[Rfam]
RNA: ZMP/ZTP riboswitch aptamer (pfl RNA motif)
Organism: Paenibacillus nanensis
RNA sequence: UUAAGUAUGUGUAACUGGCGUAACGUGGAUGACCACGGUGGAGCACAUACGGAUACGGCCGUACGCCUGGGCAGAGGUA
Numbered sequence: 001u002u003a004a005g006u007a008u009g010u011g012u013a014a015c016u017g018g019c020g021u022a023a024c025g026u027g028g029a030u031g032a033c034c035a036c037g038g039u040g041g042a043g044c045a046c047a048u049a050c051g052g053a054u055a056c057g058g059c060c061g062u063a064c065g066c067c068u069g070g071g072c073a074g075a076g077g078u079a
Stems, first nucleotide, its partner, number of pairs: 005050008015040001017067005025036004056074001058072003